[Rfam]
RNA sequence: AAAAUAUUUUUGCUCCGAACCGCCUCGCCUAAGUUCAGCGAUAUGGUGAACGGUCAAUAGGGUGUAAUUGGAAACGAUUAUGCCUUCCUUUUGAAAAGGAGCACAGCUUAUUAAGGU
Numbered sequence: 001a002a003a004a005u006a007u008u009u010u011u012g013c014u015c016c017g018a019a020c021c022g023c024c025u026c027g028c029c030u031a032a033g034u035u036c037a038g039c040g041a042u043a044u045g046g047u048g049a050a051c052g053g054u055c056a057a058u059a060g061g062g063u064g065u066a067a068u069u070g071g072a073a074a075c076g077a078u079u080a081u082g083c084c085u086u087c088c089u090u091u092u093g094a095a096a097a098g099g100a101g102c103a104c105a106g107c108u109u110a111u112u113a114a115g116g117u
Stems, first nucleotide, its partner, number of pairs: 003111001006108001011103006019054004025049005033042003060085011086094002
Annotation
The family of this 117-nucleotide sequence from Desulfoscipio gibsoniae is "Molybdenum/Tungsten riboswitch aptamer (Moco RNA motif)". Its family is annotated with molybdenum ion binding, tungstate binding and regulation of gene expression in the Gene Ontology. Taxonomically the source falls in Desulfoscipio gibsoniae (Bacteria, Bacillati, Clostridia, Eubacteriales). For this family Rfam cites "in molybdenum cofactor and tungsten cofactor metabolism" (Regulski et al., Mol Microbiol, 2008). It scores 71 bits against the family's covariance model.